[Rfam]
RNA sequence: GAGUUACGAUAUCGUGCGAGGUUAAGCAGAAGAUGCGGAGCCGUAGCGAAAGCGAGUCUGAAUAGGGCGAAGAGUACGAUGUUGUAGACCCGAAACCGUGUGAGCUAGCCAUGAGCAGGCUGAAGGUCAGGUAACACUGACUGGAGGGCCGAACCAGGGCACGUUGAAAAGUGCUUGGAUGACUUGUGGCUAGGGGUGAAAUUCCAAUCGAACACGGAUAUAGCUGGUU
Dot-bracket structure: ....(((((((((((((..((((..(((.....)))..))))...((....))..((((.....)))).....)))))))))))))..((.(...((((((...((((((((((((.((((...((((((......))))))....))))...(((.(((((........))))))))..).))))))))))).((.......))......))))))......).))..

This 229-nucleotide part of an RNA from Turicibacter sp. H121 belongs to the Rfam family "Bacterial large subunit ribosomal RNA". Rfam links the family to the GO terms ribosome and structural constituent of ribosome. The family has 102 seed sequences and 51,934 matches in Rfam 15.1.